[Rfam]
RNA sequence: UUGGGAGUUUGAGGCCAUAGCAGAAGUCUUCAGGCUGUGGCCCUGUCAGAUUCCAACGACUCUGUGAAUUUUGCU
Numbered sequence: 001u002u003g004g005g006a007g008u009u010u011g012a013g014g015c016c017a018u019a020g021c022a023g024a025a026g027u028c029u030u031c032a033g034g035c036u037g038u039g040g041c042c043c044u045g046u047c048a049g050a051u052u053c054c055a056a057c058g059a060c061u062c063u064g065u066g067a068a069u070u071u072u073g074c075u
Base pairs, nucleotide, nucleotide: 011043013042014041015040016039019075020074021073022072023071024070025069026038027037047064048063049062050061052059053058
Record summary:
A member of the RNA family "Mammalian CPEB3 ribozyme" from Crocodylus porosus, 75 nucleotides long.